Notes: Glycine riboswitch aptamer: a 96-nucleotide RNA from Marisediminicola antarctica. The pairing is the family consensus, mapped onto this sequence. The source organism's lineage runs through Bacteria, Actinomycetes, Micrococcales, Microbacteriaceae and Marisediminicola. This family represents the bacterial glycine riboswitch.
Nucleotides: 096
Base pairs, nucleotide, nucleotide: 006091007090008089009088010087011086012085013084020038021037040076041075042074043072044071047070048069049068054062
Number, partner (000 for none) and nucleotide at each position: 001000c002000a003000a004000c005000g006091c007090g008089a009088u010087g011086c012085g013084g014000g015000a016000g017000a018000g019000u020038u021037c022000g023000c024000c025000g026000g027000a028000a029000c030000a031000u032000c033000g034000g035000c036000g037021g038020a039000c040076a041075c042074c043072g044071a045000a046000g047070g048069a049068g050000c051000a052000a053000u054062u055000u056000c057000u058000c059000c060000c061000c062054a063000c064000c065000a066000a067000u068049c069048u070047c071044u072043c073000a074042g075041g076040u077000a078000c079000g080000a081000g082000u083000a084013c085012c086011g087010c088009a089008u090007c091006g092000a093000a094000c095000a096000g